Annotation: Shown here is a 65-nucleotide RNA from Branchiostoma belcheri, a member of the family "Selenocysteine insertion sequence 1". From the family's description: The incorporation of selenocysteine into a protein sequence is directed by an in-frame UGA codon (usually a stop codon) within the coding region of the mRNA. Selenoprotein mRNAs contain a conserved secondary structure in the 3' UTR that is required for the distinction of UGA stop from UGA selenocysteine. The selenocysteine insertion sequence (SECIS) is around 60 nt in length and adopts a hairpin structure which is sufficiently well-defined and conserved to act as a computational screen for selenoprotein genes. Rfam classes the family as a cis-regulatory element. A reference for the family is Walczak et al. (1996), "A novel RNA structural motif in the selenocysteine insertion element of eukaryotic selenoprotein mRNAs", RNA.
RNA sequence: CUGCUGUCUAUGAUGACCUGUUCCUAAACCUCCUUGGGUCGAACUGGUCGGAUGUUCUUUAGCAG
Numbered sequence: 001c002u003g004c005u006g007u008c009u010a011u012g013a014u015g016a017c018c019u020g021u022u023c024c025u026a027a028a029c030c031u032c033c034u035u036g037g038g039u040c041g042a043a044c045u046g047g048u049c050g051g052a053u054g055u056u057c058u059u060u061a062g063c064a065g
Stems, first nucleotide, its partner, number of pairs: 001065005015049004020044004030038003